RNA sequence: CAAGCCAGAAGAGGAGCGUUGCCCAGGUAGGGUAUCGGAGGAGCCGUAAUCCGAUAAUGAUACCCCAGGGGGAGCGACGCCGAGAUGACGUGCGAUACGGUAUGCACAUCAUCGACCGCAGGGGCUGAAUCCCCUGGGUUGUCACCCGGUUCGUCCUGAUUAGGACGUUCAGCAAGGUGGAGCGCUUCUGGGUGU
Numbered sequence: 001c002a003a004g005c006c007a008g009a010a011g012a013g014g015a016g017c018g019u020u021g022c023c024c025a026g027g028u029a030g031g032g033u034a035u036c037g038g039a040g041g042a043g044c045c046g047u048a049a050u051c052c053g054a055u056a057a058u059g060a061u062a063c064c065c066c067a068g069g070g071g072g073a074g075c076g077a078c079g080c081c082g083a084g085a086u087g088a089c090g091u092g093c094g095a096u097a098c099g100g101u102a103u104g105c106a107c108a109u110c111a112u113c114g115a116c117c118g119c120a121g122g123g124g125c126u127g128a129a130u131c132c133c134c135u136g137g138g139u140u141g142u143c144a145c146c147c148g149g150u151u152c153g154u155c156c157u158g159a160u161u162a163g164g165a166c167g168u169u170c171a172g173c174a175a176g177g178u179g180g181a182g183c184g185c186u187u188c189u190g191g192g193u194g195u
Base pairs, nucleotide, nucleotide: 006190007189008188009187010186011185016080017079018078019077020076021075022074024072030065031064032063033062034061035060036059037058084113085112086111087110088109090107091106092105093104094103114140115139116138117137119136120135121134122133123132124131142180143179144178145177146176
The record is a 195-nucleotide RNA from Brenneria rubrifaciens, which matches "Lysine riboswitch aptamer" in Rfam. It scores 97 bits against the family's covariance model. The base pairs follow the family's consensus structure, which is taken from published work. Taxonomically the source falls in Brenneria (Bacteria, Pseudomonadota, Gammaproteobacteria, Enterobacterales).